A member of the RNA family "Small nucleolar RNA snoR77" from Coptis chinensis, 138 nucleotides long. A search with the family's covariance model found it, with a score of 92 bits. A reference for the family is Marker et al. (2002), "Experimental RNomics: identification of 140 candidates for small non-messenger RNAs in the plant Arabidopsis thaliana", Curr Biol. The base pairs follow the family's consensus structure, which was predicted with WAR.
RNA sequence: AGGCAGCCCCCCUGUGGAUGAUAAUAAUGGCAGGGGAGGUGUUAUUCUUCUCGUAAAUUGAAUUUUUGCUCUUCAGACAUGCUGAUAUGAGUUUUAUAAUUCAUUAUCUGAAGCUGGUCCAGUAAUCCUAAGUACAGU
Numbered sequence: 001a002g003g004c005a006g007c008c009c010c011c012c013u014g015u016g017g018a019u020g021a022u023a024a025u026a027a028u029g030g031c032a033g034g035g036g037a038g039g040u041g042u043u044a045u046u047c048u049u050c051u052c053g054u055a056a057a058u059u060g061a062a063u064u065u066u067u068g069c070u071c072u073u074c075a076g077a078c079a080u081g082c083u084g085a086u087a088u089g090a091g092u093u094u095u096a097u098a099a100u101u102c103a104u105u106a107u108c109u110g111a112a113g114c115u116g117g118u119c120c121a122g123u124a125a126u127c128c129u130a131a132g133u134a135c136a137g138u
Stems, first nucleotide, its partner, number of pairs: 002043004007039002009036007017028001063132003068127001070125001076119003081114003086106002